This 242-nucleotide RNA from Bradyrhizobium sp. LMTR 3 belongs to the Rfam family "Alphaproteobacterial sRNA ar45".
The pairing is the family consensus, mapped onto this sequence.
On this family, see del Val et al., RNA Biol 2012: "A survey of sRNA families in alpha-proteobacteria".
NCBI's taxonomy places the organism under Bacteria, Alphaproteobacteria, Hyphomicrobiales, Nitrobacteraceae, Bradyrhizobium.

[Rfam]
RNA sequence: GCCCAAUUUCGCACGUGCCUGUGGUCGUGUGUCAGUCGGUAGGUAUCCGGACAAGAGGCCGGACAGCCGCCAAGGGAUGAAGAACCGAGGGUCGCUCCUGUUCGAGUGGCCAGCAUCUCUCUCAAGAGAUGCCGUUGAAGGUCCCUCCAUCCUUUGCAACCGUGACUGGCAGCCGGAGGCGAACCGGCGCACCCCGCUCUCAACGGGGGACGCGACUUAAAGCAACGACGGAUCGGGCUUUU
Number, nucleotide and partner (000 for none) at each position: 001g238002c237003c236004c235005a000006a000007u000008u000009u228010c227011g226012c000013a000014c000015g000016u224017g223018c222019c000020u000021g000022u000023g217024g216025u215026c214027g213028u212029g211030u210031g000032u000033c000034a000035g000036u000037c000038g071039g070040u069041a000042g067043g000044u000045a000046u063047c062048c061049g060050g059051a000052c000053a000054a000055g000056a000057g000058g000059c050060c049061g048062g047063a046064c000065a000066g000067c042068c000069g040070c039071c038072a000073a000074g000075g000076g000077a000078u000079g097080a096081a000082g000083a000084a000085c000086c000087g000088a000089g000090g000091g000092u000093c000094g000095c000096u080097c079098c206099u205100g204101u203102u000103c000104g199105a198106g197107u196108g195109g194110c000111c000112a000113g000114c000115a000116u000117c000118u000119c000120u000121c000122u000123c000124a000125a000126g000127a000128g000129a000130u000131g000132c000133c000134g000135u000136u000137g000138a000139a000140g000141g000142u000143c000144c000145c000146u000147c000148c000149a000150u000151c000152c000153u000154u000155u000156g000157c000158a000159a000160c000161c000162g000163u000164g000165a000166c000167u000168g000169g000170c000171a000172g000173c000174c000175g000176g000177a000178g000179g000180c000181g000182a000183a000184c000185c000186g000187g000188c000189g000190c000191a000192c000193c000194c109195c108196g107197c106198u105199c104200u000201c000202a000203a101204c100205g099206g098207g000208g000209g000210a030211c029212g028213c027214g026215a025216c024217u023218u000219a000220a000221a000222g018223c017224a016225a000226c011227g010228a009229c000230g000231g000232a000233u000234c000235g004236g003237g002238c001239u000240u000241u000242u000